[Rfam]
RNA sequence: UCUCCCAUUUGACUACCACAUUUUCUCCUAAUAAUCGAUUUUAGUGCCCAUGCAUAUGAGGUAGAUUAAAAUUGCCAUGAUCUGAAAAGGGGGGUUUAUUUGUGUUCUCCUCCUGUAUGAAAUGGCUGAACAGAAAAAA
Numbered sequence: 001u002c003u004c005c006c007a008u009u010u011g012a013c014u015a016c017c018a019c020a021u022u023u024u025c026u027c028c029u030a031a032u033a034a035u036c037g038a039u040u041u042u043a044g045u046g047c048c049c050a051u052g053c054a055u056a057u058g059a060g061g062u063a064g065a066u067u068a069a070a071a072u073u074g075c076c077a078u079g080a081u082c083u084g085a086a087a088a089g090g091g092g093g094g095u096u097u098a099u100u101u102g103u104g105u106u107c108u109c110c111u112c113c114u115g116u117a118u119g120a121a122a123u124g125g126c127u128g129a130a131c132a133g134a135a136a137a138a139a
Stems, first nucleotide, its partner, number of pairs: 004060001006058002017046003074126004092113003
Description
Shown here is a 139-nucleotide sequence from Phyllostomus discolor, a member of the family "Small nucleolar RNA SNORA29". The family is grouped with related families in Rfam's "SNORA20 clan". About the family: ACA29 is a member of the H/ACA class of snoRNA that guide the sites of modification of uridines to pseudouridines. The match comes from Rfam's covariance-model search (132 bits). Its family is annotated with nucleolus and RNA processing in the Gene Ontology.